[Rfam]
RNA sequence: AAAUUGUUGCAGGGGGACUCAGAAAAUGAGUUGAGAAGGUUAAAACCUGACCCUUAGAACCUGUUCGUUAAGACGAUCGUAGGGAGCAUCUUCCAACUAUAU
Numbered sequence: 001a002a003a004u005u006g007u008u009g010c011a012g013g014g015g016g017a018c019u020c021a022g023a024a025a026a027u028g029a030g031u032u033g034a035g036a037a038g039g040u041u042a043a044a045a046c047c048u049g050a051c052c053c054u055u056a057g058a059a060c061c062u063g064u065u066c067g068u069u070a071a072g073a074c075g076a077u078c079g080u081a082g083g084g085a086g087c088a089u090c091u092u093c094c095a096a097c098u099a100u101a102u
Base pairs, nucleotide, nucleotide: 006090008088009087010086011054012053013052014051016048017031018030019029020028021027038047039046040045060083061082062081063080065076066075067074
RNA: TPP riboswitch aptamer (THI element)
Organism: Cytobacillus kochii